[Rfam]
RNA: Xanthine riboswitch aptamer (NMT1 RNA)
RNA sequence: AUGUGGAGUAGAAGCUGUCAGUGCCCAUGAGCACGGGUCAUUGCUCCCGGA
Numbered sequence: 001a002u003g004u005g006g007a008g009u010a011g012a013a014g015c016u017g018u019c020a021g022u023g024c025c026c027a028u029g030a031g032c033a034c035g036g037g038u039c040a041u042u043g044c045u046c047c048c049g050g051a
Stems, first nucleotide, its partner, number of pairs: 005047006015036001019037001021034004